[Rfam]
RNA sequence: GUGCCCUUUUAAGGUCGAUGCAGUGCUUUAAGGGGCUAACACAGAAGGGUAAAGGUAGUCUCCAUAAAAUCAAGAGAAGAGAUUGUGCACUCCUCUUUGGAGCCUGUCUAUAGUCACAGUU
Numbered sequence: 001g002u003g004c005c006c007u008u009u010u011a012a013g014g015u016c017g018a019u020g021c022a023g024u025g026c027u028u029u030a031a032g033g034g035g036c037u038a039a040c041a042c043a044g045a046a047g048g049g050u051a052a053a054g055g056u057a058g059u060c061u062c063c064a065u066a067a068a069a070u071c072a073a074g075a076g077a078a079g080a081g082a083u084u085g086u087g088c089a090c091u092c093c094u095c096u097u098u099g100g101a102g103c104c105u106g107u108c109u110a111u112a113g114u115c116a117c118a119g120u121u
Base pairs, nucleotide, nucleotide: 002051003050004049005048006047007046008045009044010043014040015039017037019035021032058115060113061112064109071100073098074097075096076095077094079092080091081090083089
Dot-bracket structure: .(((((((((...((.(.(.(..........)..).).))..)))))))))......(.((..(......(.(((((.(((.(.....)))).))))).)........)..)).)......

A member of the RNA family "Small nucleolar RNA SNORA26" from Sus scrofa, 121 nucleotides long. Rfam classes the family as an H/ACA-box small nucleolar RNA. Its Rfam clan is "SNORA27 clan". From the family's description: The snoRNA HBI-6 belong to the H/ACA family of snoRNAs, guiding the pseudouridylation of position U4522 if the 28S rRNA. HBI-6 is the human orthologue of mouse MBI-6 snoRNA. It scores 108 bits against the family's covariance model. A reference for the family is Huttenhofer et al. (2001), "RNomics: an experimental approach that identifies 201 candidates for novel, small, non-messenger RNAs in mouse", EMBO J.